[Rfam]
Nucleotides: 070
Stems, first nucleotide, its partner, number of pairs: 004038006041063009
Number, partner (000 for none) and nucleotide at each position: 001000a002000u003000a004038c005037a006036u007035c008034u009033a010000g011000a012000u013000a014000u015000c016000c017000a018000u019000a020000c021000c022000c023000c024000u025000a026000u027000a028000c029000u030000c031000c032000c033009u034008a035007g036006a037005u038004g039000a040000a041063g042062g043061a044060a045059a046058g047057u048056g049055u050000u051000u052000c053000g054000u055049g056048c057047a058046c059045u060044u061043u062042c063041c064000u065000a066000u067000u068000u069000u070000u
Source information: Rfam assigns this 70-nucleotide RNA from Sutcliffiella cohnii to the family "Listeria sRNA sbrA". The family's consensus secondary structure was predicted with WAR. By type it is a small RNA.